Rfam assigns this 149-nucleotide RNA sequence from Anoxybacteroides amylolyticum to the family "Ribosomal protein L10 leader". Pairs were carried over by alignment from the consensus structure, which was predicted with CMfinder. Its family is annotated with regulation of gene expression in the Gene Ontology. The organism belongs to Anoxybacteroides, within Bacteria. A search with the family's covariance model found it, with a score of 75 bits.
RNA sequence: AAACGAAUAUCAUUUGUACCGUAGACAGUAGGUGCUCCAAUAGAGCUUAAUUUCCUACCGAGGUGUUCCUGACAUAGAAAAAGUGCUGUAUUAAGCACUUUUAAGGCACCUCCAUGUCUACGUAGACAUGGAGGUUUUUGCGGUAUAAG
Numbered sequence: 001a002a003a004c005g006a007a008u009a010u011c012a013u014u015u016g017u018a019c020c021g022u023a024g025a026c027a028g029u030a031g032g033u034g035c036u037c038c039a040a041u042a043g044a045g046c047u048u049a050a051u052u053u054c055c056u057a058c059c060g061a062g063g064u065g066u067u068c069c070u071g072a073c074a075u076a077g078a079a080a081a082a083g084u085g086c087u088g089u090a091u092u093a094a095g096c097a098c099u100u101u102u103a104a105g106g107c108a109c110c111u112c113c114a115u116g117u118c119u120a121c122g123u124a125g126a127c128a129u130g131g132a133g134g135u136u137u138u139u140g141c142g143g144u145a146u147a148a149g
Stems, first nucleotide, its partner, number of pairs: 028058005034046003109134010